A member of the RNA family "Streptomyces-metH RNA" from Streptomyces sp. SID8379, 121 nucleotides long. The organism belongs to Streptomyces, within Bacteria. It is annotated as a small RNA. It scores 110 bits against the family's covariance model.
[Rfam]
RNA sequence: CCAUUCCGGCCCGUGGACGCCUGGACGGAUGGACCUUCGGCCCGGCUACCCUGACCGGGUGCGCCUCCAGCAGUGGAGCCGCAAAGCCGACAGCCGUCGCACCUCAGGGAGCACUUUCAUG
Numbered sequence: 001c002c003a004u005u006c007c008g009g010c011c012c013g014u015g016g017a018c019g020c021c022u023g024g025a026c027g028g029a030u031g032g033a034c035c036u037u038c039g040g041c042c043c044g045g046c047u048a049c050c051c052u053g054a055c056c057g058g059g060u061g062c063g064c065c066u067c068c069a070g071c072a073g074u075g076g077a078g079c080c081g082c083a084a085a086g087c088c089g090a091c092a093g094c095c096g097u098c099g100c101a102c103c104u105c106a107g108g109g110a111g112c113a114c115u116u117u118c119a120u121g
Base pairs, nucleotide, nucleotide: 060083061082062081063080065078066077067076068075086100087099089098090097091096